Rfam assigns this 76-nucleotide RNA sequence from Callithrix jacchus to the family "Small nucleolar RNA SNORD115".
RNA sequence: GGGCCAGUGAUGACAUGUUCUCUUGAAGAGAAAUGAUGACACAAAAAUUAAGUUUGGUUUGAUUAUGCUGAGGCCC
Numbered sequence: 001g002g003g004c005c006a007g008u009g010a011u012g013a014c015a016u017g018u019u020c021u022c023u024u025g026a027a028g029a030g031a032a033a034u035g036a037u038g039a040c041a042c043a044a045a046a047a048u049u050a051a052g053u054u055u056g057g058u059u060u061g062a063u064u065a066u067g068c069u070g071a072g073g074c075c076c
Base pairs, nucleotide, nucleotide: 001076002075003074004073005070006069008067009066
Gene Ontology terms of the family: RNA processing and nucleolus.